Shown here is a 69-nucleotide RNA, a member of the family "GP20-b RNA". The family's consensus secondary structure is taken from published work. Rfam's curators put it in the seed alignment.

[Rfam]
RNA sequence: UUUCUUAUUGUAGAUGUAAAAGAACAAAUAGAAAAAAACUCUAAGUGAUGCAAACACGUAAAAAGCGUA
Number, nucleotide and partner (000 for none) at each position: 001u016002u000003u014004c013005u000006u000007a000008u027009u026010g025011u024012a000013g004014a003015u000016g001017u000018a000019a000020a000021a000022g000023a000024a011025c010026a009027a008028a000029u000030a000031g000032a000033a000034a000035a000036a000037a000038a000039c000040u000041c000042u000043a000044a000045g057046u056047g055048a000049u000050g000051c000052a000053a000054a000055c047056a046057c045058g000059u000060a000061a000062a000063a000064a000065g000066c000067g000068u000069a000